[Rfam]
RNA sequence: UGGCACCCAACGUGGGGCUCCAGCACAGGGGAUCCAGUGAAGGACGCCGUUCGAGUGGCCGGCAGAAAGGAAAGCAAAGAAAAAUAAAAGAAAAGAAAAGAGGGAACGACGUGGGAACCUGCUGCGUCUGCACCCCUCGGGUAAGUGAACGGCGAUCAUGGGGCAAGAAAUGAGUGAGCAUGAAUUAUUUGUGGAACAGUUAGGUCAUGCAUUAAAGGCACGAGGAGUAAAGGUGAAAGUAAAACAUUUAUGUAAAUAUUUUGAUUAUAUCAAAGAUCUCUGCCCUU
Numbered sequence: 001u002g003g004c005a006c007c008c009a010a011c012g013u014g015g016g017g018c019u020c021c022a023g024c025a026c027a028g029g030g031g032a033u034c035c036a037g038u039g040a041a042g043g044a045c046g047c048c049g050u051u052c053g054a055g056u057g058g059c060c061g062g063c064a065g066a067a068a069g070g071a072a073a074g075c076a077a078a079g080a081a082a083a084a085u086a087a088a089a090g091a092a093a094a095g096a097a098a099a100g101a102g103g104g105a106a107c108g109a110c111g112u113g114g115g116a117a118c119c120u121g122c123u124g125c126g127u128c129u130g131c132a133c134c135c136c137u138c139g140g141g142u143a144a145g146u147g148a149a150c151g152g153c154g155a156u157c158a159u160g161g162g163g164c165a166a167g168a169a170a171u172g173a174g175u176g177a178g179c180a181u182g183a184a185u186u187a188u189u190u191g192u193g194g195a196a197c198a199g200u201u202a203g204g205u206c207a208u209g210c211a212u213u214a215a216a217g218g219c220a221c222g223a224g225g226a227g228u229a230a231a232g233g234u235g236a237a238a239g240u241a242a243a244a245c246a247u248u249u250a251u252g253u254a255a256a257u258a259u260u261u262u263g264a265u266u267a268u269a270u271c272a273a274a275g276a277u278c279u280c281u282g283c284c285c286u287u
Stems, first nucleotide, its partner, number of pairs: 006031003012026003035057002038054001100138002102135002107130001110126005146165002150162001153160002171214003174210003221263005227257002231249005272287002275284001277282001
This 287-nucleotide sequence from Molossus molossus belongs to the Rfam family "Mason-Pfizer monkey virus packaging signal".
For this family Rfam cites "Mutational analysis of the predicted secondary RNA structure of the Mason-Pfizer monkey virus packaging signal" (Mustafa et al., Virus Res, 2004).
The family's consensus secondary structure was predicted with PFOLD.
Rfam classes the family as a cis-regulatory element.